The record is a 102-nucleotide sequence from Aquilegia coerulea, which matches "MIR398 microRNA precursor family" in Rfam. The match comes from Rfam's covariance-model search (70 bits). Pairs were carried over by alignment from the consensus structure, which was predicted with WAR.

[Rfam]
RNA sequence: GUACUUCCUGGAGGAGUGGCACUAAGAACACAGGUGGUUGUGCGAUUUCGAAUAUCAUUGCAUUUUGCAUUUGUGUUCUCAGGUCACCCCUUUGGGGAACUC
Numbered sequence: 001g002u003a004c005u006u007c008c009u010g011g012a013g014g015a016g017u018g019g020c021a022c023u024a025a026g027a028a029c030a031c032a033g034g035u036g037g038u039u040g041u042g043c044g045a046u047u048u049c050g051a052a053u054a055u056c057a058u059u060g061c062a063u064u065u066u067g068c069a070u071u072u073g074u075g076u077u078c079u080c081a082g083g084u085c086a087c088c089c090c091u092u093u094g095g096g097g098a099a100c101u102c
Stems, first nucleotide, its partner, number of pairs: 007096002011092004016087004025079009
Record summary: The literature on the family includes a 2004 paper in Plant Cell by Sunkar and Zhu, "Novel and stress-regulated microRNAs and other small RNAs from Arabidopsis". The organism belongs to Aquilegia, within Eukaryota.